RNA sequence: AGAUUCGAAAUUCCUCGGCAGUUAACUGCAACCGGUUCUUUAAAAUUUCGGCAGUUAACUGCUGAAUGGUAU
Numbered sequence: 001a002g003a004u005u006c007g008a009a010a011u012u013c014c015u016c017g018g019c020a021g022u023u024a025a026c027u028g029c030a031a032c033c034g035g036u037u038c039u040u041u042a043a044a045a046u047u048u049c050g051g052c053a054g055u056u057a058a059c060u061g062c063u064g065a066a067u068g069g070u071a072u
Stems, first nucleotide, its partner, number of pairs: 012068001015065015
MIR2629 microRNA precursor family: a 72-nucleotide sequence from Medicago truncatula. A search with the family's covariance model found it, with a score of 61 bits.